[Rfam]
RNA sequence: CCUUUGCCGGCGAGGGCUCGAAAGAGAUGUGCCGGACGUGGAUUAGUCGGAAAGUGCCACGUCAUAAGAAAACCCCGACAGCC
Numbered sequence: 001c002c003u004u005u006g007c008c009g010g011c012g013a014g015g016g017c018u019c020g021a022a023a024g025a026g027a028u029g030u031g032c033c034g035g036a037c038g039u040g041g042a043u044u045a046g047u048c049g050g051a052a053a054g055u056g057c058c059a060c061g062u063c064a065u066a067a068g069a070a071a072a073c074c075c076c077g078a079c080a081g082c083c
Stems, first nucleotide, its partner, number of pairs: 001015004007035005017026003037061005046079005
The family of this 83-nucleotide RNA sequence is "Proteo-phage-1 RNA". It is one of the family's seed sequences. The family's RNA type in Rfam is small RNA. Pairs were carried over by alignment from the consensus structure, which is taken from published work.